[Rfam]
RNA sequence: CCAGAAACUGAUUGUCCAAACGCAAUUCUUGUAAAAUGUAAAUCUAAUCCAAGAAUUGUGCCUGGACAUCUGUUGCUGG
Numbered sequence: 001c002c003a004g005a006a007a008c009u010g011a012u013u014g015u016c017c018a019a020a021c022g023c024a025a026u027u028c029u030u031g032u033a034a035a036a037u038g039u040a041a042a043u044c045u046a047a048u049c050c051a052a053g054a055a056u057u058g059u060g061c062c063u064g065g066a067c068a069u070c071u072g073u074u075g076c077u078g079g
Stems, first nucleotide, its partner, number of pairs: 002078003006074002010070003014067005021060011